A member of the RNA family "Caenorhabditis snoRNA ceN80" from Caenorhabditis japonica, 137 nucleotides long. For this family Rfam cites "Systematic identification of non-coding RNA 2,2,7-trimethylguanosine cap structures in Caenorhabditis elegans" (Jia et al., BMC Mol Biol, 2007).

RNA sequence: CAUCCAUGUUUACUACUACUUGAUCUCUGUUUUUGGAGUUUUUCGAGUAUUUUGCGAUGCAUGGGAGAGAAAAUUGUGACCAGGUUUCUUCAAAUUUCCCAAUUUCGGACUUGAAGUUACAAUGUCAUUGUACAAUA
Numbered sequence: 001c002a003u004c005c006a007u008g009u010u011u012a013c014u015a016c017u018a019c020u021u022g023a024u025c026u027c028u029g030u031u032u033u034u035g036g037a038g039u040u041u042u043u044c045g046a047g048u049a050u051u052u053u054g055c056g057a058u059g060c061a062u063g064g065g066a067g068a069g070a071a072a073a074u075u076g077u078g079a080c081c082a083g084g085u086u087u088c089u090u091c092a093a094a095u096u097u098c099c100c101a102a103u104u105u106c107g108g109a110c111u112u113g114a115a116g117u118u119a120c121a122a123u124g125u126c127a128u129u130g131u132a133c134a135a136u137a
Stems, first nucleotide, its partner, number of pairs: 004064006017049006026038001074130001076128005084120002088116002091113003